[Rfam]
RNA sequence: GAUCAGUGUGGUGAGGCGGAGACUUGGGCAACGGCUGGUGCAUCAUUCUAAAGCAUUGCACUUGUCUCAGUCUGCCUGUGCUGCUC
Numbered sequence: 001g002a003u004c005a006g007u008g009u010g011g012u013g014a015g016g017c018g019g020a021g022a023c024u025u026g027g028g029c030a031a032c033g034g035c036u037g038g039u040g041c042a043u044c045a046u047u048c049u050a051a052a053g054c055a056u057u058g059c060a061c062u063u064g065u066c067u068c069a070g071u072c073u074g075c076c077u078g079u080g081c082u083g084c085u086c
Base pairs, nucleotide, nucleotide: 001086002085004083006081007080008079009078014073015072016071017070019068020067021066022065023064028059029058030057031056034054035053036052037048038047
mir-25 microRNA precursor family: an 86-nucleotide RNA from Eptatretus burgeri. A search with the family's covariance model found it, with a score of 56 bits. Rfam 15.1 lists 311 matches to the family in 255 species. Rfam links the family to the GO terms RISC complex and miRNA-mediated post-transcriptional gene silencing.